[Rfam]
RNA: Small nucleolar RNA SNORA81
RNA sequence: UUUUUCUAUAUUUUGCCUGUGUCCUGAGAACUUAAAAUUCAAAUUUAAAUUUAAAAAAUAAUGGACCAAACACACAAGAAGAAAAGUAACUACACUGGAUCCCAAAGAUUGGGGUGGACUUCUUUCUUAAUGUCCAGUGUCCUUUGUCUUAAGAUUUGGUGUAAUAUAA
Numbered sequence: 001u002u003u004u005u006c007u008a009u010a011u012u013u014u015g016c017c018u019g020u021g022u023c024c025u026g027a028g029a030a031c032u033u034a035a036a037a038u039u040c041a042a043a044u045u046u047a048a049a050u051u052u053a054a055a056a057a058a059u060a061a062u063g064g065a066c067c068a069a070a071c072a073c074a075c076a077a078g079a080a081g082a083a084a085a086g087u088a089a090c091u092a093c094a095c096u097g098g099a100u101c102c103c104a105a106a107g108a109u110u111g112g113g114g115u116g117g118a119c120u121u122c123u124u125u126c127u128u129a130a131u132g133u134c135c136a137g138u139g140u141c142c143u144u145u146g147u148c149u150u151a152a153g154a155u156u157u158g159g160u161g162u163a164a165u166a167u168a169a
Base pairs, nucleotide, nucleotide: 018068019067020065023064024063025058028052029051032048033047034046035045036044038042091163092162093161094160095159096158097157098156099155111140113138115136116135117134118133